Nucleotides: 086
Base pairs, nucleotide, nucleotide: 003084004083005082006081
Number, partner (000 for none) and nucleotide at each position: 001000g002000a003084a004083g005082a006081c007000a008000a009000u010000g011000a012000u013000g014000a015000u016000c017000u018000c019000u020000a021000c022000a023000g024000a025000c026000c027000u028000g029000u030000a031000a032000u033000g034000a035000u036000u037000u038000g039000c040000g041000a042000a043000u044000a045000u046000g047000a048000u049000c050000g051000c052000a053000a054000u055000u056000c057000u058000u059000u060000a061000u062000u063000g064000a065000a066000c067000a068000u069000c070000u071000a072000a073000g074000g075000g076000a077000c078000u079000g080000a081006g082005u083004u084003u085000c086000u
Shown here is an 86-nucleotide RNA sequence from Acer saccharum, a member of the family "Small nucleolar RNA SNORD25".
By type it is a C/D-box small nucleolar RNA.
The match comes from Rfam's covariance-model search (56 bits).
Pairs were carried over by alignment from the consensus structure, which was predicted with PFOLD.
For this family Rfam cites "Identification of 10 novel snoRNA gene clusters from Arabidopsis thaliana" (Qu et al., Nucleic Acids Res, 2001).
Its family is annotated with RNA processing and nucleolus in the Gene Ontology.